[Rfam]
RNA sequence: AGCAAUUUGGCGCAGUGGAAGCGCGCCGGGCUCAUAACCCGGAGGCCGCACGAUCGAAACGUGCAAUUGCUA
Numbered sequence: 001a002g003c004a005a006u007u008u009g010g011c012g013c014a015g016u017g018g019a020a021g022c023g024c025g026c027c028g029g030g031c032u033c034a035u036a037a038c039c040c041g042g043a044g045g046c047c048g049c050a051c052g053a054u055c056g057a058a059a060c061g062u063g064c065a066a067u068u069g070c071u072a
Stems, first nucleotide, its partner, number of pairs: 001071007010024004026042005048064005
The record is a 72-nucleotide RNA from Claviceps pusilla, which matches "tRNA" in Rfam. By type it is a transfer RNA.